Record summary: The record is a 121-nucleotide RNA sequence from Nonomuraea jabiensis, which matches "SAM (S-adenosyl methionine) riboswitch aptamer" in Rfam. It scores 93 bits against the family's covariance model.
[Rfam]
RNA sequence: UGUCACGAGUCCAGUGCGAAGCCCCGGCUUGCUGGACGGCAACCCUCCCACCGCGGCGGGGUGCCCCGGGUGAUGACAUGGUCGUCGAGCUGAACGGUGCUCCUGGCGGCAAGCGCGGAUG
Numbered sequence: 001u002g003u004c005a006c007g008a009g010u011c012c013a014g015u016g017c018g019a020a021g022c023c024c025c026g027g028c029u030u031g032c033u034g035g036a037c038g039g040c041a042a043c044c045c046u047c048c049c050a051c052c053g054c055g056g057c058g059g060g061g062u063g064c065c066c067c068g069g070g071u072g073a074u075g076a077c078a079u080g081g082u083c084g085u086c087g088a089g090c091u092g093a094a095c096g097g098u099g100c101u102c103c104u105g106g107c108g109g110c111a112a113g114c115g116c117g118g119a120u121g
Stems, first nucleotide, its partner, number of pairs: 001078004009037007020029002038065003043061003047056002081110007089102001

Taxonomically the source falls in Nonomuraea (Bacteria, Actinomycetota, Streptosporangiales, Streptosporangiaceae).
SAM-IV is a mRNA element that regulates gene expression via direct sensing of S-adenosylmethionine (SAM or AdoMet).